[Rfam]
RNA: Lysine riboswitch aptamer
Organism: Cytobacillus solani
RNA sequence: CGAUGGGGUAGAGGUGCAGAAUUUAAGAGUAAGCUGUGUGAGGAUGACAACAAGGAUCACAGCCUAAAGGGAAUUUUGCCGAAGUAAAUGAAUUUGUGUCAACAAUCAUUUGCUGGGGUUACUUUGAAUAAGGGUAAUACUGUCAUUAUGAAGGACAAGCAGGAAAUCUGCUUUACUAAGCCUUCAUAUUGGGGAGCUACAGGUCGU
Numbered sequence: 001c002g003a004u005g006g007g008g009u010a011g012a013g014g015u016g017c018a019g020a021a022u023u024u025a026a027g028a029g030u031a032a033g034c035u036g037u038g039u040g041a042g043g044a045u046g047a048c049a050a051c052a053a054g055g056a057u058c059a060c061a062g063c064c065u066a067a068a069g070g071g072a073a074u075u076u077u078g079c080c081g082a083a084g085u086a087a088a089u090g091a092a093u094u095u096g097u098g099u100c101a102a103c104a105a106u107c108a109u110u111u112g113c114u115g116g117g118g119u120u121a122c123u124u125u126g127a128a129u130a131a132g133g134g135u136a137a138u139a140c141u142g143u144c145a146u147u148a149u150g151a152a153g154g155a156c157a158a159g160c161a162g163g164a165a166a167u168c169u170g171c172u173u174u175a176c177u178a179a180g181c182c183u184u185c186a187u188a189u190u191g192g193g194g195a196g197c198u199a200c201a202g203g204u205c206g207u
Stems, first nucleotide, its partner, number of pairs: 008200004016079009033063006083114009093104001115141002118138008143192003147188008